THF (Tetrahydrofolate) riboswitch aptamer: a 95-nucleotide RNA from Latilactobacillus sakei. Rfam 15.1 lists 747 matches to the family in 747 species.
RNA sequence: CGGAGUAGGGAUUAAAGCGUUAAGUGCUGGUGGAACGGAAUGUGAACACCAGACGAAGAGCAGUAAUGCUCGCGGUUUUAGUCCCGCAUUCGCCG
Numbered sequence: 001c002g003g004a005g006u007a008g009g010g011a012u013u014a015a016a017g018c019g020u021u022a023a024g025u026g027c028u029g030g031u032g033g034a035a036c037g038g039a040a041u042g043u044g045a046a047c048a049c050c051a052g053a054c055g056a057a058g059a060g061c062a063g064u065a066a067u068g069c070u071c072g073c074g075g076u077u078u079u080a081g082u083c084c085c086g087c088a089u090u091c092g093c094c095g
Stems, first nucleotide, its partner, number of pairs: 001095003008085010018074003024054002027052006038091005058071004

A reference for the family is Ames et al. (2010), "A eubacterial riboswitch class that senses the coenzyme tetrahydrofolate", Chem Biol. Pairs were carried over by alignment from the consensus structure, which is taken from published work. It is one of the family's seed sequences. From the family's description: Tetrahydrofolate (THF) riboswitch was first reported for Ames et al. as an RNA motif in 5' untranslated (5'-UTR)regions of folate transport and biosynthesis genes in Firmicutes genomes.